[Rfam]
RNA sequence: GGUCCCAGUGACUCACUCAACCUGGGUGUGAUGUGUGCACAUGUUGCUCAGCCCAUCACAACCUCCUUGAGUGAGCGACUGUGGCC
Dot-bracket structure: ........((.(((((((((...((.(((((((....................))))))).))...))))))))))).........
Numbered sequence: 001g002g003u004c005c006c007a008g009u010g011a012c013u014c015a016c017u018c019a020a021c022c023u024g025g026g027u028g029u030g031a032u033g034u035g036u037g038c039a040c041a042u043g044u045u046g047c048u049c050a051g052c053c054c055a056u057c058a059c060a061a062c063c064u065c066c067u068u069g070a071g072u073g074a075g076c077g078a079c080u081g082u083g084g085c086c
Stems, first nucleotide, its partner, number of pairs: 009077002012075009024063002027060007